Rfam assigns this 215-nucleotide RNA sequence from Cronobacter sakazakii to the family "tp2". Rfam classes the family as a small RNA. The literature on the family includes a 2003 paper in Nucleic Acids Res by Hershberg et al., "A survey of small RNA-encoding genes in Escherichia coli". The family's consensus secondary structure was predicted with RNAalifold.
RNA sequence: GGUAUUCCUUAUCAUCUAUCUAAUACGUUGAUUUAUCUGGAACCUGUCCCAUUGCACUCUGUGCUCUUACAGCGUCCGGCUGCGUCUGUAGCGGCUGUGCGCCCCCUUUCUUUUCAAGGGCUUCAUCUUGCCGCCGCGAUGCAACCUGAACUACGGGCACUUAACAAAGCGCAAUAAGACAGGUUCUGGGUUUAGUUGCCGCGCUUCAAUGGCGC
Numbered sequence: 001g002g003u004a005u006u007c008c009u010u011a012u013c014a015u016c017u018a019u020c021u022a023a024u025a026c027g028u029u030g031a032u033u034u035a036u037c038u039g040g041a042a043c044c045u046g047u048c049c050c051a052u053u054g055c056a057c058u059c060u061g062u063g064c065u066c067u068u069a070c071a072g073c074g075u076c077c078g079g080c081u082g083c084g085u086c087u088g089u090a091g092c093g094g095c096u097g098u099g100c101g102c103c104c105c106c107u108u109u110c111u112u113u114u115c116a117a118g119g120g121c122u123u124c125a126u127c128u129u130g131c132c133g134c135c136g137c138g139a140u141g142c143a144a145c146c147u148g149a150a151c152u153a154c155g156g157g158c159a160c161u162u163a164a165c166a167a168a169g170c171g172c173a174a175u176a177a178g179a180c181a182g183g184u185u186c187u188g189g190g191u192u193u194a195g196u197u198g199c200c201g202c203g204c205u206u207c208a209a210u211g212g213c214g215c
Base pairs, nucleotide, nucleotide: 001200002199003198004197025191026190028188039187040186041185042184043183044182045181046180047179048178051175052174053173054172055171057169058168060166061165